[Rfam]
The record is a 75-nucleotide RNA sequence from Leifsonia sp. Leaf336, which matches "Fluoride riboswitch aptamer (crcB RNA motif)" in Rfam. The base pairs follow the family's consensus structure, which is taken from published work. The match comes from Rfam's covariance-model search (36 bits).
Nucleotides: 075
Stems, first nucleotide, its partner, number of pairs: 010025004016066003020062002046056003
Number, partner (000 for none) and nucleotide at each position: 001000u002000g003000a004000u005000c006000c007000a008000g009000c010025g011024g012023c013022g014000a015000u016066g017065g018064a019000u020062c021061u022013c023012g024011c025010c026000g027000g028000g029000g030000c031000g032000u033000g034000a035000a036000c037000g038000c039000c040000c041000g042000a043000a044000c045000c046056g047055c048054g049000a050000c051000g052000g053000u054048c055047g056046c057000u058000g059000a060000u061021a062020g063000u064018u065017c066016c067000u068000g069000c070000g071000c072000u073000u074000c075000a